[Rfam]
RNA sequence: CCUGUGGAGAAUCACAGCAAACGUUAGUAGCUUUAAGCAAAAACGGAUUCGAUGAAGCAGGAA
Numbered sequence: 001c002c003u004g005u006g007g008a009g010a011a012u013c014a015c016a017g018c019a020a021a022c023g024u025u026a027g028u029a030g031c032u033u034u035a036a037g038c039a040a041a042a043a044c045g046g047a048u049u050c051g052a053u054g055a056a057g058c059a060g061g062a063a
Stems, first nucleotide, its partner, number of pairs: 001061005009050005022045003030038003
Dot-bracket structure: (((((...(((((........(((.....(((...)))....))))))))......)))))..

The record is a 63-nucleotide RNA, which matches "RAGATH-18 RNA" in Rfam. Actinobacteria, Firmicutes, Fusobacteria, Thermotogae (1 example). The sequence is in the family's curated seed alignment. The base pairs follow the family's consensus structure, which is taken from published work.